[Rfam]
RNA sequence: UUUAUCAACAGACUCCGAGCUUGUGAACCUAACUUCUCGGUCGUUUUACAAAUUUUCGUUAAAUUCGACCGCUUUUUGUAAGAAUAUGGUAGCAAUGCCUGUAAUUAGCUUAUACGUAGCUGAUUCAAGGGAAUUUCAAGAAAUUGUUGUUCCUCUCGUGUUUAGAAAGGUGUCCAAUGCAAUCCAUU
Numbered sequence: 001u002u003u004a005u006c007a008a009c010a011g012a013c014u015c016c017g018a019g020c021u022u023g024u025g026a027a028c029c030u031a032a033c034u035u036c037u038c039g040g041u042c043g044u045u046u047u048a049c050a051a052a053u054u055u056u057c058g059u060u061a062a063a064u065u066c067g068a069c070c071g072c073u074u075u076u077u078g079u080a081a082g083a084a085u086a087u088g089g090u091a092g093c094a095a096u097g098c099c100u101g102u103a104a105u106u107a108g109c110u111u112a113u114a115c116g117u118a119g120c121u122g123a124u125u126c127a128a129g130g131g132a133a134u135u136u137c138a139a140g141a142a143a144u145u146g147u148u149g150u151u152c153c154u155c156u157c158g159u160g161u162u163u164a165g166a167a168a169g170g171u172g173u174c175c176a177a178u179g180c181a182a183u184c185c186a187u188u
Stems, first nucleotide, its partner, number of pairs: 003182001006179001011174003015170002019098002022095001027090003034084003101126001103124001105122001129154006137146003155165002